[Rfam]
Shown here is an 85-nucleotide RNA sequence from Macaca mulatta, a member of the family "mir-615 microRNA precursor family". Rfam's curators put it in the seed alignment.
RNA sequence: GAGGGGCGGAAGGGGGGUCCCCGGUGCUCGGAUCUCGAGGGUGCUUAUUGUUCGGUCCGAGCCUGGGUCUCCCUCUUCCCCCCAA
Dot-bracket structure: ..((((.((((((((((..(((((.((((((((..((((.(.......).)))))))))))))))))..))))))))))))))..
Numbered sequence: 001g002a003g004g005g006g007c008g009g010a011a012g013g014g015g016g017g018u019c020c021c022c023g024g025u026g027c028u029c030g031g032a033u034c035u036c037g038a039g040g041g042u043g044c045u046u047a048u049u050g051u052u053c054g055g056u057c058c059g060a061g062c063c064u065g066g067g068u069c070u071c072c073c074u075c076u077u078c079c080c081c082c083c084a085a
Stems, first nucleotide, its partner, number of pairs: 003083004008079010020067005026062008036054004041049001
The source organism's lineage runs through Eukaryota, Opisthokonta, Euteleostomi, Amniota and Macaca.